[Rfam]
RNA sequence: ACGUUACAUUUGCUGAAUCCUGGAUUUUCCAGGUACGGAGGAACCAUUCUUGGGGUUAAUCCAUGAUUGUUUUCAUGGUAGGGAGCCUUCUUUCCCGAACCCGUCAGCUAACUUCGGAAGCGAUUAAAGGAAGGAGUG
Numbered sequence: 001a002c003g004u005u006a007c008a009u010u011u012g013c014u015g016a017a018u019c020c021u022g023g024a025u026u027u028u029c030c031a032g033g034u035a036c037g038g039a040g041g042a043a044c045c046a047u048u049c050u051u052g053g054g055g056u057u058a059a060u061c062c063a064u065g066a067u068u069g070u071u072u073u074c075a076u077g078g079u080a081g082g083g084a085g086c087c088u089u090c091u092u093u094c095c096c097g098a099a100c101c102c103g104u105c106a107g108c109u110a111a112c113u114u115c116g117g118a119a120g121c122g123a124u125u126a127a128a129g130g131a132a133g134g135a136g137u138g
Base pairs, nucleotide, nucleotide: 011122012121013120014119019033020032021031022030023029036116037115038114039113040112045052046051053102054101055100061078062077063076064075081096082095083094084093
RNA: c-di-AMP riboswitch aptamer (ydaO/yuaA leader)
Organism: Anaerosolibacter carboniphilus